[Rfam]
RNA sequence: UUGGAAGUGAUGACUUUUUCCCCAGAUGAUCGAAGCUGAUUAUACUGAGCGCACUAUUAUUCUCCUUGAGAGAAUCAAGCCAAUUUUCUGAUCCAU
Numbered sequence: 001u002u003g004g005a006a007g008u009g010a011u012g013a014c015u016u017u018u019u020c021c022c023c024a025g026a027u028g029a030u031c032g033a034a035g036c037u038g039a040u041u042a043u044a045c046u047g048a049g050c051g052c053a054c055u056a057u058u059a060u061u062c063u064c065c066u067u068g069a070g071a072g073a074a075u076c077a078a079g080c081c082a083a084u085u086u087u088c089u090g091a092u093c094c095a096u
Base pairs, nucleotide, nucleotide: 002095003094004093005092
Small nucleolar RNA Z103: a 96-nucleotide sequence from Cannabis sativa. The family has 12 seed sequences and 2,844 matches in Rfam 15.1. The source organism's lineage runs through Eukaryota, Magnoliopsida, Gunneridae, Pentapetalae and Cannabis. The match comes from Rfam's covariance-model search (87 bits). The base pairs follow the family's consensus structure, which was predicted with PFOLD.